[Rfam]
RNA: Small nucleolar RNA R21
RNA sequence: CAUCCCCAUGAUGGAUAUUUGUAAAUCAAAAGUAGUGGGCUGACAUGCAUUGAUGAAAAACAAUGGUCUCUGAGGGAUG
Dot-bracket structure: ((((((...................................................................))))))